The record is a 169-nucleotide sequence from Acetohalobium arabaticum, which matches "c-di-AMP riboswitch aptamer (ydaO/yuaA leader)" in Rfam. A search with the family's covariance model found it, with a score of 101 bits.

[Rfam]
RNA sequence: AAUACUUAAUUGCCGAGUUCUAUAUUAUCCAUUUUAAUAGAUGGAUAUAUAGAAACGGGGGACCCAUUUUUGGGGUGAAUCCGGUCUUCAAUCUACAUUGGAGACUGGUAGGGUUACUCUUUCAACCCGAAUCCGACAGCUAACCUCGUAGGCAUUUUAGAAAGAGGGA
Dot-bracket structure: ..........((((...((((((((.....................))))))))((((((....((....))(((.....((((((((((((....))))))))))))..((((..........))))...))).........)))))).))))...............